[Rfam]
RNA sequence: GCCGGAUUGGCGGAAUGGCAGACGCGGGGCACUCAAAAUGCUCUGUCCGAGAGGGCGUGUGGGUUCGAGUCCCACAUCCGGCA
Numbered sequence: 001g002c003c004g005g006a007u008u009g010g011c012g013g014a015a016u017g018g019c020a021g022a023c024g025c026g027g028g029g030c031a032c033u034c035a036a037a038a039u040g041c042u043c044u045g046u047c048c049g050a051g052a053g054g055g056c057g058u059g060u061g062g063g064u065u066c067g068a069g070u071c072c073c074a075c076a077u078c079c080g081g082c083a
Stems, first nucleotide, its partner, number of pairs: 001082007010025003027043005059075005
This 83-nucleotide RNA from Frigoribacterium sp. PhB160 belongs to the Rfam family "tRNA". The match comes from Rfam's covariance-model search (54 bits). The organism belongs to Frigoribacterium, within Bacteria.